[Rfam]
RNA sequence: CUUGACGGAGCCGAGCCAGAGCGGCUGUCCGGCGUCGCGUGCCGCCCCGUAGGUGGCGAGGAGGGCCUGUGCCUC
Numbered sequence: 001c002u003u004g005a006c007g008g009a010g011c012c013g014a015g016c017c018a019g020a021g022c023g024g025c026u027g028u029c030c031g032g033c034g035u036c037g038c039g040u041g042c043c044g045c046c047c048c049g050u051a052g053g054u055g056g057c058g059a060g061g062a063g064g065g066c067c068u069g070u071g072c073c074u075c
Base pairs, nucleotide, nucleotide: 014026015025016024017023032070033069038065043060045058047056048055049054
RNA: ASpks TB sRNA
Organism: Streptomyces filamentosus